[Rfam]
RNA: Plastid-ycf2 5UTR RNA
Organism: Ziziphus jujuba
RNA sequence: GUGCAUCCAGUAGGAGUUGAACAUACGAAUUUCCAAUUAUGAGUGGGCGCUUUAACCAUUCAAUAUGGAUGC
Number, nucleotide and partner (000 for none) at each position: 001g000002u000003g072004c071005a070006u069007c068008c067009a000010g026011u025012a024013g000014g022015a000016g000017u000018u000019g000020a000021a000022c014023a000024u012025a011026c010027g000028a000029a000030u000031u000032u000033c000034c000035a000036a000037u000038u000039a066040u065041g064042a000043g000044u062045g061046g060047g059048c000049g057050c000051u000052u000053u000054a000055a000056c000057c049058a000059u047060u046061c045062a044063a000064u041065a040066u039067g008068g007069a006070u005071g004072c003